[Rfam]
RNA sequence: AAACUAAAAAGGCCGAAGCUUUUUGCAAAAAAAAGCGCGGGGGAACCCUUCCAUUGGGGUGAAGCCACGUCGUUGUGGCCGGGUGAUUGCUCUUUGACCCGAAUCCGUCAGCUAACCUCGCAGGCCGUCAUAAGGAGAGGA
Numbered sequence: 001a002a003a004c005u006a007a008a009a010a011g012g013c014c015g016a017a018g019c020u021u022u023u024u025g026c027a028a029a030a031a032a033a034a035g036c037g038c039g040g041g042g043g044a045a046c047c048c049u050u051c052c053a054u055u056g057g058g059g060u061g062a063a064g065c066c067a068c069g070u071c072g073u074u075g076u077g078g079c080c081g082g083g084u085g086a087u088u089g090c091u092c093u094u095u096g097a098c099c100c101g102a103a104u105c106c107g108u109c110a111g112c113u114a115a116c117c118u119c120g121c122a123g124g125c126c127g128u129c130a131u132a133a134g135g136a137g138a139g140g141a
Base pairs, nucleotide, nucleotide: 011126012125013124014123018036019035020034021033022032023031024030037121038120039119040118041117042116047056057106058105059104065078066077067076068075081100082099083098084097
Shown here is a 141-nucleotide RNA from Paenibacillus thalictri, a member of the family "c-di-AMP riboswitch aptamer (ydaO/yuaA leader)". Taxonomically the source falls in Paenibacillus (Bacteria, Bacillati, Bacillota, Caryophanales). Rfam's curators write: This family represents a conserved RNA structure found upstream of the ydaO and yuaA genes in Bacillus subtilis and related genes in other bacteria. The ydaO/yuaA element is thought to act as a genetic 'off' switch for the ydaO and yuaA genes in its native state. A search with the family's covariance model found it, with a score of 96 bits.